[Rfam]
RNA sequence: GGGUCAAUGAUGAGAUCCCAUACUGAAGGAAGGUGAUGACUUAAAAAAGUCAUGCUCAAUAGGAUUACGCUGAGGCCC
Numbered sequence: 001g002g003g004u005c006a007a008u009g010a011u012g013a014g015a016u017c018c019c020a021u022a023c024u025g026a027a028g029g030a031a032g033g034u035g036a037u038g039a040c041u042u043a044a045a046a047a048a049g050u051c052a053u054g055c056u057c058a059a060u061a062g063g064a065u066u067a068c069g070c071u072g073a074g075g076c077c078c
Stems, first nucleotide, its partner, number of pairs: 001078004005072002008069002
The family of this 78-nucleotide sequence from Ochotona princeps is "Small nucleolar RNA SNORD115". It is annotated as a C/D-box small nucleolar RNA. Rfam's curators put it in the seed alignment.